Fluoride riboswitch aptamer (crcB RNA motif): a 63-nucleotide sequence from Geosporobacter ferrireducens. The base pairs follow the family's consensus structure, which is taken from published work.
[Rfam]
RNA sequence: AUUUCAAUAGGUGAUGGGGCUCACCACUAAUAUUGCUUAGCAAUUGAUGGCUCCUACUAAAGU
Numbered sequence: 001a002u003u004u005c006a007a008u009a010g011g012u013g014a015u016g017g018g019g020c021u022c023a024c025c026a027c028u029a030a031u032a033u034u035g036c037u038u039a040g041c042a043a044u045u046g047a048u049g050g051c052u053c054c055u056a057c058u059a060a061a062g063u
Base pairs, nucleotide, nucleotide: 010025011024012023013022016054017053018052019051020050021049032044033043034042035041
The organism belongs to Geosporobacter, within Bacteria.